Record summary
Plastid-rps12 3UTR RNA: a 96-nucleotide sequence from Symplocos ovatilobata. On this family, see Richter et al., Plant Commun 2023: "Retrograde signaling in plants: A critical review focusing on the GUN pathway and beyond".
RNA sequence: GGUUUCUGUUGGUGCAAAUCCAAUAACCUCAAUUUAAGAUGAGAAAAGAUUCCCCAGGGGUAUCAAAUGGUUAUCCAUUAAGCGGGGAAAUCCUAU
Numbered sequence: 001g002g003u004u005u006c007u008g009u010u011g012g013u014g015c016a017a018a019u020c021c022a023a024u025a026a027c028c029u030c031a032a033u034u035u036a037a038g039a040u041g042a043g044a045a046a047a048g049a050u051u052c053c054c055c056a057g058g059g060g061u062a063u064c065a066a067a068u069g070g071u072u073a074u075c076c077a078u079u080a081a082g083c084g085g086g087g088a089a090a091u092c093c094u095a096u
Base pairs, nucleotide, nucleotide: 009023010022011021012020052087053086054085055084056078059075060074061073062072064070
Description: The source organism's lineage runs through Eukaryota, Embryophyta, asterids, Ericales and Symplocos. Rfam classes the family as a cis-regulatory element.